RNA sequence: AGCACCUCUCCCGACCUGGCACAACAUCCUGCUGAGAUGUUGUCUAUCGACCUGCAGUGUCACAUGUCGGCGGAGAUGCU
Number, nucleotide and partner (000 for none) at each position: 001a080002g079003c078004a077005c000006c075007u074008c000009u000010c000011c070012c069013g068014a067015c066016c000017u000018g000019g000020c000021a000022c000023a041024a040025c039026a038027u037028c036029c000030u000031g000032c000033u000034g000035a000036g028037a027038u026039g025040u024041u023042g000043u000044c000045u000046a000047u000048c000049g061050a060051c059052c000053u000054g000055c000056a000057g000058u000059g051060u050061c049062a000063c000064a000065u000066g015067u014068c013069g012070g011071c000072g000073g000074a007075g006076a000077u004078g003079c002080u001
Rfam assigns this 80-nucleotide RNA sequence from Fusarium falciforme to the family "bZIP non canonical Hac1/Xbp1 intron". The source organism's lineage runs through Eukaryota, Ascomycota, Pezizomycotina, Nectriaceae and Fusarium solani species complex. The base pairs follow the family's consensus structure, which was predicted with RNAfold. By type it is a small RNA. bZIP intron RNA is a non-canonical intron that was first reported in HAC1 gene in yeast and XBP1 gene in Metazoa.